[Rfam]
Record summary: Purine riboswitch aptamer: a 102-nucleotide RNA from Bacillus oleivorans. The family has 133 seed sequences and 4,097 matches in Rfam 15.1. The match comes from Rfam's covariance-model search (90 bits).

Nucleotides: 102
Stems, first nucleotide, its partner, number of pairs: 018088002021085005030048006058078007
Number, partner (000 for none) and nucleotide at each position: 001000a002000a003000u004000u005000u006000a007000a008000u009000a010000g011000c012000u013000a014000c015000a016000u017000u018088a019087c020000g021085u022084c023083g024082u025081a026000u027000a028000a029000u030048a031047u032046c033045a034044g035043g036000a037000a038000u039000a040000u041000g042000g043035c044034c045033u046032g047031a048030u049000c050000g051000u052000u053000u054000c055000u056000a057000c058078c059077g060076a061075g062074c063073u064072a065000c066000c067000a068000u069000a070000a071000a072064u073063a074062g075061c076060u077059u078058g079000a080000c081025u082024a083023c084022g085021a086000g087019g088018u089000a090000a091000u092000g093000u094000g095000a096000a097000a098000u099000a100000u101000g102000g